[Rfam]
RNA sequence: CCGCCGCAUCUUCGGGGAGUAGCCGUUCGCUCCAGCGAAGCUCGCGUCAACAAACUUGGCCGCAAGGCCAUGGCGCGGGCGGCGGGCCUUCAGGCCU
Number, nucleotide and partner (000 for none) at each position: 001c000002c000003g000004c000005c000006g000007c000008a000009u000010c000011u000012u000013c000014g000015g000016g000017g000018a000019g000020u000021a000022g000023c000024c000025g000026u000027u038028c037029g036030c000031u000032c000033c000034a000035g000036c029037g028038a027039a000040g080041c079042u078043c077044g076045c075046g074047u073048c072049a071050a000051c000052a000053a000054a000055c000056u000057u070058g069059g068060c067061c066062g000063c000064a000065a000066g061067g060068c059069c058070a057071u049072g048073g047074c046075g045076c044077g043078g042079g041080c040081g000082g000083c000084g000085g000086g000087c000088c000089u000090u000091c000092a000093g000094g000095c000096c000097u000